[Rfam]
Description:
MIR9563 microRNA precursor family: a 125-nucleotide RNA from Brassica carinata. Rfam 15.1 lists 5,832 matches to the family in 9 species. The source organism's lineage runs through Eukaryota, Tracheophyta, Mesangiospermae, Brassicales and Brassica.
RNA sequence: GGAAUAUAAGAACUCGUCUUUUAACUUUUAACUAAAAAAGCUAAGAAGCGGUUCUUAAAUAAGAGUUUUAAGAGCCGGUUCUUAACCUUUUUAGUUAAAAAUUAAGAGACGAGUUCUUAUAUUUC
Numbered sequence: 001g002g003a004a005u006a007u008a009a010g011a012a013c014u015c016g017u018c019u020u021u022u023a024a025c026u027u028u029u030a031a032c033u034a035a036a037a038a039a040g041c042u043a044a045g046a047a048g049c050g051g052u053u054c055u056u057a058a059a060u061a062a063g064a065g066u067u068u069u070a071a072g073a074g075c076c077g078g079u080u081c082u083u084a085a086c087c088u089u090u091u092u093a094g095u096u097a098a099a100a101a102u103u104a105a106g107a108g109a110c111g112a113g114u115u116c117u118u119a120u121a122u123u124u125c
Stems, first nucleotide, its partner, number of pairs: 001125024026100013042084006